[Rfam]
RNA sequence: AAGACCUUACUUCAUAGGAUCAUUUCUAUAGUAAGCUCUUCUCGAGACUUUCACACUAUGUGAGUCCUCACCAGUCACGUUGAUGAGAUGUGGCGCGGUGCCCUGAGCGUGAGGCGGGCGGUGGUAGACCUAUCAUCAGCCCUCGAUGAUCGUUCGCUUCCCUUCACGGGGGAGAGUGGGGUACUGUCGCUGUCUGAGUGGC
Dot-bracket structure: ((((.((((((...(((((....))))).)))))).)))).......(((...........))).........(((((..............((((((((((((..(((.......(((..((((......))))...))).........)))..(((((((((...))))))).))))))))))).))).......)))))
RNA: Small nucleolar RNA U3